[Rfam]
RNA sequence: GGGCAUUCUCAGGGCGGGGCGGAAUUCCCCACCGGCGGUAUGGGAGCAGUAGCCCCCGAGCCCGCGAGCGCAACAGGUCUCCUGUUGGUCAGCAGAUCCGGUGCAAGGCCGGAGCCGACGGUUAAAGUCCGGAUGGAAGAGAAUGCGC
Dot-bracket structure: ..((((((((......(((.......))).[[((((((.....................[[))))..((......................))...(((((.......)))))]])).(((.....]]))).......))))))))..
RNA: FMN riboswitch aptamer (RFN element)